[Rfam]
Shown here is a 93-nucleotide RNA from Dendrobium nobile, a member of the family "Small nucleolar RNA R64/Z200 family".
The source organism's lineage runs through Eukaryota, Liliopsida, Petrosaviidae, Epidendroideae and Dendrobium.
The family's consensus secondary structure was predicted with PFOLD.
Its family is annotated with nucleolus and RNA processing in the Gene Ontology.
A search with the family's covariance model found it, with a score of 71 bits.
Rfam classes the family as a C/D-box small nucleolar RNA.
RNA sequence: GUUUUGAUGUGAUGAAUUAUGAAAUACACAUGUCAGGCUUCAGAGGUGUUUUGUGCGCCAAUGAGAAGAAAAUUUUAUUGUUCUGAGCAAAAU
Numbered sequence: 001g002u003u004u005u006g007a008u009g010u011g012a013u014g015a016a017u018u019a020u021g022a023a024a025u026a027c028a029c030a031u032g033u034c035a036g037g038c039u040u041c042a043g044a045g046g047u048g049u050u051u052u053g054u055g056c057g058c059c060a061a062u063g064a065g066a067a068g069a070a071a072a073u074u075u076u077a078u079u080g081u082u083c084u085g086a087g088c089a090a091a092a093u
Stems, first nucleotide, its partner, number of pairs: 001093006045059004